[Rfam]
RNA sequence: UGUCAUGCUUUUCCACAGCUUUCUUGAACUUCUUCUUCUUCUUCUUCUUCUUGGUAUAUAGCCUUCUUGAUGUGUGGCAUAGAAGUUCAAGAAAGCUGUGGGAGAACAUGGCAA
Numbered sequence: 001u002g003u004c005a006u007g008c009u010u011u012u013c014c015a016c017a018g019c020u021u022u023c024u025u026g027a028a029c030u031u032c033u034u035c036u037u038c039u040u041c042u043u044c045u046u047c048u049u050c051u052u053g054g055u056a057u058a059u060a061g062c063c064u065u066c067u068u069g070a071u072g073u074g075u076g077g078c079a080u081a082g083a084a085g086u087u088c089a090a091g092a093a094a095g096c097u098g099u100g101g102g103a104g105a106a107c108a109u110g111g112c113a114a
Stems, first nucleotide, its partner, number of pairs: 003111005013101003017097006024090004029085005

Shown here is a 114-nucleotide sequence from Hevea brasiliensis, a member of the family "MIR396 microRNA precursor family". The family's consensus secondary structure was predicted with WAR. The source organism's lineage runs through Eukaryota, Embryophyta, Tracheophyta, Spermatophyta and Hevea. On this family, see Xie et al., Plant Physiol 2005: "Expression of Arabidopsis MIRNA genes". Rfam 15.1 lists 744 matches to the family in 207 species.